[Rfam]
RNA sequence: GUGUUUUUCAUAGUAUUAGAUUUAAGGUUAACAAGAUUGGAGCAAAGUGUUGCUCCUUUUUUUAUG
Numbered sequence: 001g002u003g004u005u006u007u008u009c010a011u012a013g014u015a016u017u018a019g020a021u022u023u024a025a026g027g028u029u030a031a032c033a034a035g036a037u038u039g040g041a042g043c044a045a046a047g048u049g050u051u052g053c054u055c056c057u058u059u060u061u062u063u064a065u066g
Base pairs, nucleotide, nucleotide: 039056040055041054042053043052044051045050